[Rfam]
RNA: FMN riboswitch aptamer (RFN element)
Organism: Shewanella mangrovi
RNA sequence: CACUAUUCUCAGGGCGGGGUGUGAUUCCCCACCGGCGGUAAAUCGUCAGUCAUAUGACUUGCGAAAGCCCGCGAGCGCUCGGCGUUGCCGAGGACAGCAGAUCUGGUGCCAUCAACCGCAGUUGAUUAUUCCAGAGCCGACGGUGUUGCCAAUUGCAGAUUGGUUCAGUCCGGAUGGGAGAGAAUAUGA
Numbered sequence: 001c002a003c004u005a006u007u008c009u010c011a012g013g014g015c016g017g018g019g020u021g022u023g024a025u026u027c028c029c030c031a032c033c034g035g036c037g038g039u040a041a042a043u044c045g046u047c048a049g050u051c052a053u054a055u056g057a058c059u060u061g062c063g064a065a066a067g068c069c070c071g072c073g074a075g076c077g078c079u080c081g082g083c084g085u086u087g088c089c090g091a092g093g094a095c096a097g098c099a100g101a102u103c104u105g106g107u108g109c110c111a112u113c114a115a116c117c118g119c120a121g122u123u124g125a126u127u128a129u130u131c132c133a134g135a136g137c138c139g140a141c142g143g144u145g146u147u148g149c150c151a152a153u154u155g156c157a158g159a160u161u162g163g164u165u166c167a168g169u170c171c172g173g174a175u176g177g178g179a180g181a182g183a184a185u186a187u188g189a
Stems, first nucleotide, its partner, number of pairs: 004186007017029003033139002035072004067137002075098002102135005141172003